[Rfam]
RNA sequence: CGACGUAAAACGAAACAGGCAGGAAAGAGAGAAAAAUCUUUACGUGCCGGGUCACAAAAGUGACAGCAGGUGAAAAUGAAAAGCAUCUGUGGGACAGUA
Numbered sequence: 001c002g003a004c005g006u007a008a009a010a011c012g013a014a015a016c017a018g019g020c021a022g023g024a025a026a027g028a029g030a031g032a033a034a035a036a037u038c039u040u041u042a043c044g045u046g047c048c049g050g051g052u053c054a055c056a057a058a059a060g061u062g063a064c065a066g067c068a069g070g071u072g073a074a075a076a077u078g079a080a081a082a083g084c085a086u087c088u089g090u091g092g093g094a095c096a097g098u099a
Stems, first nucleotide, its partner, number of pairs: 010098002016093001018048004022043001024041004051064005066090006